[Rfam]
Shown here is a 73-nucleotide RNA from Lodderomyces elongisporus, a member of the family "tRNA". It scores 61 bits against the family's covariance model. Rfam classes the family as a transfer RNA.
RNA sequence: AUUCCUGUGGUUUAGAGGUUAUAACGUUUCGUUUACACCGAAAAGGUCCCGAGUUCGAUCCUCGGCAGGGAUA
Numbered sequence: 001a002u003u004c005c006u007g008u009g010g011u012u013u014a015g016a017g018g019u020u021a022u023a024a025c026g027u028u029u030c031g032u033u034u035a036c037a038c039c040g041a042a043a044a045g046g047u048c049c050c051g052a053g054u055u056c057g058a059u060c061c062u063c064g065g066c067a068g069g070g071a072u073a
Stems, first nucleotide, its partner, number of pairs: 001072007010025003027043005049065005